[Rfam]
RNA sequence: GAGUAAGAAUUAGCUCAAGUGGUUACUCCCUCACAAUGGAGUUUCCAUCCAUCUAAUCCCUGCACUAUGGUUUGAGUUCCAUGAGUGGUUUCUGAUCCUUUA
Numbered sequence: 001g002a003g004u005a006a007g008a009a010u011u012a013g014c015u016c017a018a019g020u021g022g023u024u025a026c027u028c029c030c031u032c033a034c035a036a037u038g039g040a041g042u043u044u045c046c047a048u049c050c051a052u053c054u055a056a057u058c059c060c061u062g063c064a065c066u067a068u069g070g071u072u073u074g075a076g077u078u079c080c081a082u083g084a085g086u087g088g089u090u091u092c093u094g095a096u097c098c099u100u101u102a
Base pairs, nucleotide, nucleotide: 003096004095006093007092013086014085015084016083019082020081021080022079027076029074